[Rfam]
RNA: U1 spliceosomal RNA
Organism: Neogobius melanostomus
RNA sequence: UUAUUUAGGUAUAUACAAUAUACCAUGAUCACCAAGGUGGUUUGCCCCGGGCGAGGCUUGUCCAUUGCACAUCCGGACUUGCUGCAACUCGGUGAAUUCGACAAACGUUCGAAUCUCAACUGCACAAUUUCUGGUAGUGGGGGACUGCGUUCGCGCUCUCCCCUG
Numbered sequence: 001u002u003a004u005u006u007a008g009g010u011a012u013a014u015a016c017a018a019u020a021u022a023c024c025a026u027g028a029u030c031a032c033c034a035a036g037g038u039g040g041u042u043u044g045c046c047c048c049g050g051g052c053g054a055g056g057c058u059u060g061u062c063c064a065u066u067g068c069a070c071a072u073c074c075g076g077a078c079u080u081g082c083u084g085c086a087a088c089u090c091g092g093u094g095a096a097u098u099c100g101a102c103a104a105a106c107g108u109u110c111g112a113a114u115c116u117c118a119a120c121u122g123c124a125c126a127a128u129u130u131c132u133g134g135u136a137g138u139g140g141g142g143g144a145c146u147g148c149g150u151u152c153g154c155g156c157u158c159u160c161c162c163c164u165g
Base pairs, nucleotide, nucleotide: 009123010122011121016044017043018042022041023040024039025038026037048091049090050089051088055083056082057081060078061077062076063075093118094117095116096114097113098112100110101109139164140163141162142161143160144159147156148155149154